[Rfam]
RNA: Alphaproteobacterial sRNA BjrC1505
Organism: Nordella sp. HKS 07
RNA sequence: CGUAUCGUUAACCAAUCAGUAAGGGAUUCGGUUGUAUUUUUGUCAAUGUAAUCCAGUCAUCUGGAUUCUCCGAGUGGCUCCUGUCCACUCUGUUUGACGCCUCCCUGUUAGAACCUUUUAAGCCGCGCUUUGCGCGGCUUUUUUUUG
Numbered sequence: 001c002g003u004a005u006c007g008u009u010a011a012c013c014a015a016u017c018a019g020u021a022a023g024g025g026a027u028u029c030g031g032u033u034g035u036a037u038u039u040u041u042g043u044c045a046a047u048g049u050a051a052u053c054c055a056g057u058c059a060u061c062u063g064g065a066u067u068c069u070c071c072g073a074g075u076g077g078c079u080c081c082u083g084u085c086c087a088c089u090c091u092g093u094u095u096g097a098c099g100c101c102u103c104c105c106u107g108u109u110a111g112a113a114c115c116u117u118u119u120a121a122g123c124c125g126c127g128c129u130u131u132g133c134g135c136g137g138c139u140u141u142u143u144u145u146u147g
Stems, first nucleotide, its partner, number of pairs: 001048003005014001016042001021040004026035001052065004072090006096109004120140009